[Rfam]
RNA sequence: AGAUUUAAAUUUCUCCGAGCCUGUUAACCUUCUGCUCAGGUGGUUUGCAGGACGUCAGGGUAUAACGGGAAACUGUUAUGCCUCCCAGUGUGGAAAGGAGAGGAAAAUAAUUUAAG
Numbered sequence: 001a002g003a004u005u006u007a008a009a010u011u012u013c014u015c016c017g018a019g020c021c022u023g024u025u026a027a028c029c030u031u032c033u034g035c036u037c038a039g040g041u042g043g044u045u046u047g048c049a050g051g052a053c054g055u056c057a058g059g060g061u062a063u064a065a066c067g068g069g070a071a072a073c074u075g076u077u078a079u080g081c082c083u084c085c086c087a088g089u090g091u092g093g094a095a096a097g098g099a100g101a102g103g104a105a106a107a108u109a110a111u112u113u114a115a116g
Stems, first nucleotide, its partner, number of pairs: 004109001006107001011102006020051005026045004058083011084093002